[Rfam]
RNA: tRNA
Organism: Blastobotrys ciferrii
RNA sequence: UAGGUAUUAGCUUAAUUGGUAAAGCGUUUACUUUACACGUAAAACAGUGGUGGUUCGAGUCCUUCAUACCUAA
Numbered sequence: 001u002a003g004g005u006a007u008u009a010g011c012u013u014a015a016u017u018g019g020u021a022a023a024g025c026g027u028u029u030a031c032u033u034u035a036c037a038c039g040u041a042a043a044a045c046a047g048u049g050g051u052g053g054u055u056c057g058a059g060u061c062c063u064u065c066a067u068a069c070c071u072a073a
Stems, first nucleotide, its partner, number of pairs: 001072007010025004027043005049065002052062002